[Rfam]
RNA sequence: AAACCGCCCCCUAAGUUUUGCAACUGUAGCAGUUUUGGCCCCCCAAGACUAAUUUUGGUAAAAAAAAAAUAACAUGUGGCACCUCACUUAGGGUGCCACGUCAACAUAGAUCGAUUCAAAAUUGACCUUGGAGGCCAAACUGCCACAUAUGCAAAAAUUAGGGGGCGGUUU
Numbered sequence: 001a002a003a004c005c006g007c008c009c010c011c012u013a014a015g016u017u018u019u020g021c022a023a024c025u026g027u028a029g030c031a032g033u034u035u036u037g038g039c040c041c042c043c044c045a046a047g048a049c050u051a052a053u054u055u056u057g058g059u060a061a062a063a064a065a066a067a068a069a070u071a072a073c074a075u076g077u078g079g080c081a082c083c084u085c086a087c088u089u090a091g092g093g094u095g096c097c098a099c100g101u102c103a104a105c106a107u108a109g110a111u112c113g114a115u116u117c118a119a120a121a122u123u124g125a126c127c128u129u130g131g132a133g134g135c136c137a138a139a140c141u142g143c144c145a146c147a148u149a150u151g152c153a154a155a156a157a158u159u160a161g162g163g164g165g166c167g168g169u170u171u
Base pairs, nucleotide, nucleotide: 001171002170004168005167006166007165008164012160013159014158016156017155018154019153020152021151022150025147026146027145029143030142031141032140033139034138036137037136038135039134040133043131044130045129046128074101075100077098078097079096080095081094082093083092